[Rfam]
RNA sequence: CGGGAGGAAUCCCGUAGGAAUGUGGUCCGACAGGACUGAACCGUGAA
Dot-bracket structure: (((((....)))))..((.....(((((....)))))...)).....
Numbered sequence: 001c002g003g004g005a006g007g008a009a010u011c012c013c014g015u016a017g018g019a020a021u022g023u024g025g026u027c028c029g030a031c032a033g034g035a036c037u038g039a040a041c042c043g044u045g046a047a
Stems, first nucleotide, its partner, number of pairs: 001014005017042002024037005
Description:
This 47-nucleotide RNA sequence belongs to the Rfam family "eL15-Euryarchaeota ribosomal protein leader". The sequence is in the family's curated seed alignment. A reference for the family is Eckert and Weinberg (2020), "Discovery of 20 novel ribosomal leader candidates in bacteria and archaea", BMC Microbiol. Rfam classes the family as a cis-regulatory leader.